RNA sequence: CAAUUACGAACCUUGGCACUGGGAGAAUUCACAGUCGCUAUUUGAUAUCAUUCUGUGGAUCUUUUCGUGCCAUCGUUUAAAUUUG
Numbered sequence: 001c002a003a004u005u006a007c008g009a010a011c012c013u014u015g016g017c018a019c020u021g022g023g024a025g026a027a028u029u030c031a032c033a034g035u036c037g038c039u040a041u042u043u044g045a046u047a048u049c050a051u052u053c054u055g056u057g058g059a060u061c062u063u064u065u066c067g068u069g070c071c072a073u074c075g076u077u078u079a080a081a082u083u084u085g
Stems, first nucleotide, its partner, number of pairs: 003083001005081001008078003014072005021065002023062001025061002029058006
This 85-nucleotide sequence from Culex quinquefasciatus belongs to the Rfam family "mir-263 microRNA precursor family". The family is grouped with related families in Rfam's "mir-182 clan". NCBI's taxonomy places the organism under Eukaryota, Bilateria, Arthropoda, Pterygota, Culex pipiens complex. Rfam links the family to the GO terms RISC complex and miRNA-mediated post-transcriptional gene silencing.